[Rfam]
RNA sequence: CUUUAGGGGAGGGAGCGCGGCCUGGGGUUCGGCUGUGUCUGUGGGGCGGUGUCGCGUGGAAGGUGCAUGUGAGCCGAGUGCGUGAGCGGACGCGUGUGUAUGUGUGCUUGGGGCGUGCAAGGCGAGUGCGUGCGCCUCCUCCUGCGCCCCUCCCUCCCGCCUACACCUUGAUCUUAUUUGAUCCGGUCGUGAUCCCAGCCCCGCCGGGCCGACCCGAAAUGAAAAGCUGUCCUCCUGCGAAGCCCCUUCCCGGGGCGCUGUGCAGCGAGGCCUUUUGGGCGGUGGCAAGCCGCGGUCCCCGAGGCCCUGGACUCGGUCGGACGGGACCCGGCGCUCAGAAGUGAUGAAUUGAUCAGAUAGACGAGGCCGGGCUUGUCCUGA
Numbered sequence: 001c002u003u004u005a006g007g008g009g010a011g012g013g014a015g016c017g018c019g020g021c022c023u024g025g026g027g028u029u030c031g032g033c034u035g036u037g038u039c040u041g042u043g044g045g046g047c048g049g050u051g052u053c054g055c056g057u058g059g060a061a062g063g064u065g066c067a068u069g070u071g072a073g074c075c076g077a078g079u080g081c082g083u084g085a086g087c088g089g090a091c092g093c094g095u096g097u098g099u100a101u102g103u104g105u106g107c108u109u110g111g112g113g114c115g116u117g118c119a120a121g122g123c124g125a126g127u128g129c130g131u132g133c134g135c136c137u138c139c140u141c142c143u144g145c146g147c148c149c150c151u152c153c154c155u156c157c158c159g160c161c162u163a164c165a166c167c168u169u170g171a172u173c174u175u176a177u178u179u180g181a182u183c184c185g186g187u188c189g190u191g192a193u194c195c196c197a198g199c200c201c202c203g204c205c206g207g208g209c210c211g212a213c214c215c216g217a218a219a220u221g222a223a224a225a226g227c228u229g230u231c232c233u234c235c236u237g238c239g240a241a242g243c244c245c246c247u248u249c250c251c252g253g254g255g256c257g258c259u260g261u262g263c264a265g266c267g268a269g270g271c272c273u274u275u276u277g278g279g280c281g282g283u284g285g286c287a288a289g290c291c292g293c294g295g296u297c298c299c300c301g302a303g304g305c306c307c308u309g310g311a312c313u314c315g316g317u318c319g320g321a322c323g324g325g326a327c328c329c330g331g332c333g334c335u336c337a338g339a340a341g342u343g344a345u346g347a348a349u350u351g352a353u354c355a356g357a358u359a360g361a362c363g364a365g366g367c368c369g370g371g372c373u374u375g376u377c378c379u380g381a
Stems, first nucleotide, its partner, number of pairs: 048148005053069002056066003084095001086093002098135002103130005109124002177225003182217002185214001187212003191209001194208003198204002246304003251301005257296003262293002265290002270286003273282002313331004317326002336380003346373001349370003
The family of this 381-nucleotide RNA sequence from Dasypus novemcinctus is "Small Cajal body-specific RNA 2".
Pairs were carried over by alignment from the consensus structure, which is taken from published work.
NCBI's taxonomy places the organism under Eukaryota, Opisthokonta, Craniata, Teleostomi, Dasypus.
A reference for the family is Tycowski et al. (2004), "Guide RNAs with 5' caps and novel box C/D snoRNA-like domains for modification of snRNAs in metazoa", Curr Biol.
Rfam classes the family as a small Cajal body RNA.